RNA: Streptomyces sRNA 4677
Organism: Streptomyces sp. SID4985
RNA sequence: GGUUCCGGUGACCGCGACGGUCAACAGACCUGAAAAGACCCUGGUGGAAAGGCACCCCACCAAACCCCACCAGUACCCCGCGGGUCGCUCUCACUCUGGCGAGUGAACAUCACCGAUUCCGCUGGCAAUUGCCUCCCCCAACGGCCCUACUCUCAGCGCAACAACCGCAGACAUACGUCGGCCCCCGCCGGGAGUGGCUUCCCAGUGCGAGGGCCUGACCACCAAGGAAGUUAGGCCCCUUCCCG
Numbered sequence: 001g002g003u004u005c006c007g008g009u010g011a012c013c014g015c016g017a018c019g020g021u022c023a024a025c026a027g028a029c030c031u032g033a034a035a036a037g038a039c040c041c042u043g044g045u046g047g048a049a050a051g052g053c054a055c056c057c058c059a060c061c062a063a064a065c066c067c068c069a070c071c072a073g074u075a076c077c078c079c080g081c082g083g084g085u086c087g088c089u090c091u092c093a094c095u096c097u098g099g100c101g102a103g104u105g106a107a108c109a110u111c112a113c114c115g116a117u118u119c120c121g122c123u124g125g126c127a128a129u130u131g132c133c134u135c136c137c138c139c140a141a142c143g144g145c146c147c148u149a150c151u152c153u154c155a156g157c158g159c160a161a162c163a164a165c166c167g168c169a170g171a172c173a174u175a176c177g178u179c180g181g182c183c184c185c186c187g188c189c190g191g192g193a194g195u196g197g198c199u200u201c202c203c204a205g206u207g208c209g210a211g212g213g214c215c216u217g218a219c220c221a222c223c224a225a226g227g228a229a230g231u232u233a234g235g236c237c238c239c240u241u242c243c244c245g
Base pairs, nucleotide, nucleotide: 007223008222009221010220016078019077020076021075091106092105093104094103095102096101121157122156123155124154125153180215181214182213183212184211186209187208188207190203191202192201193200226243227242228241229240230239